[Rfam]
RNA sequence: GCCGAGCUAGGUAGCAUUAGCUUGUAACUCAAGCAAGGGCAUCAAGGUGACGGGACUUAGCUCAAUUUCACAUGGUAGGGCUUGAGGUUACACUUUACGGGCUUGCCCAUUACAAAUUGAGAGUUGGGCUGAGCGGAUUAGGCGAAGGCCUGUCCCAAGCAGGCCCUGAAGAGGAGGGCACUACAUUAGGCUGGUUUCACAGAGCAUCAAAUGUCUUCCGUUCUCGAUAAUGGAAGGAUAACAACUCAAGGCAUCUCGUUCCAUCAUUACCUUGUGGACUGAGCUCAAUAGGGCUAUCAUCUUU
Numbered sequence: 001g002c003c004g005a006g007c008u009a010g011g012u013a014g015c016a017u018u019a020g021c022u023u024g025u026a027a028c029u030c031a032a033g034c035a036a037g038g039g040c041a042u043c044a045a046g047g048u049g050a051c052g053g054g055a056c057u058u059a060g061c062u063c064a065a066u067u068u069c070a071c072a073u074g075g076u077a078g079g080g081c082u083u084g085a086g087g088u089u090a091c092a093c094u095u096u097a098c099g100g101g102c103u104u105g106c107c108c109a110u111u112a113c114a115a116a117u118u119g120a121g122a123g124u125u126g127g128g129c130u131g132a133g134c135g136g137a138u139u140a141g142g143c144g145a146a147g148g149c150c151u152g153u154c155c156c157a158a159g160c161a162g163g164c165c166c167u168g169a170a171g172a173g174g175a176g177g178g179c180a181c182u183a184c185a186u187u188a189g190g191c192u193g194g195u196u197u198c199a200c201a202g203a204g205c206a207u208c209a210a211a212u213g214u215c216u217u218c219c220g221u222u223c224u225c226g227a228u229a230a231u232g233g234a235a236g237g238a239u240a241a242c243a244a245c246u247c248a249a250g251g252c253a254u255c256u257c258g259u260u261c262c263a264u265c266a267u268u269a270c271c272u273u274g275u276g277g278a279c280u281g282a283g284c285u286c287a288a289u290a291g292g293g294c295u296a297u298c299a300u301c302u303u304u
Base pairs, nucleotide, nucleotide: 001040002039003038004023005022006021007020008019009018010017028037029036044303045302046301047300048299049298050297052295053294056291057290058288060286061283062282063281064280066278068277069276070275071274072273074271075270076269077268078262079261080260082258084257085256086255089253093250100247101246103244104243105242107237108236110235111234113232114231116228117227118226119225120224121223122222123221124220126165127164129162130161131160135156136155139152140151141150142149143148166171173218174217175216176215177214182211191202192201193200